RNA sequence: CACGCAUCGCCUGAUACUUGCUUCAAACCUGAGAUGAUUUGAUAGCAAGGUGAGCAAAGUUUCAGGUGUGUGGGUGC
Number, nucleotide and partner (000 for none) at each position: 001c000002a075003c074004g000005c072006a071007u070008c068009g067010c066011c065012u064013g063014a062015u000016a060017c059018u058019u057020g000021c000022u054023u053024c052025a051026a000027a000028c050029c049030u048031g000032a000033g000034a000035u000036g000037a000038u000039u000040u000041g000042a000043u000044a000045g000046c000047a000048a030049g029050g028051u025052g024053a023054g022055c000056a000057a019058a018059g017060u016061u000062u014063c013064a012065g011066g010067u009068g008069u000070g007071u006072g005073g000074g003075u002076g000077c000
The record is a 77-nucleotide RNA sequence from Laodelphax striatellus, which matches "mir-87 microRNA precursor family" in Rfam. The organism belongs to Laodelphax, within Eukaryota. For this family Rfam cites "The small RNA profile during Drosophila melanogaster development" (Aravin et al., Dev Cell, 2003). Pairs were carried over by alignment from the consensus structure, which was predicted with RNAalifold.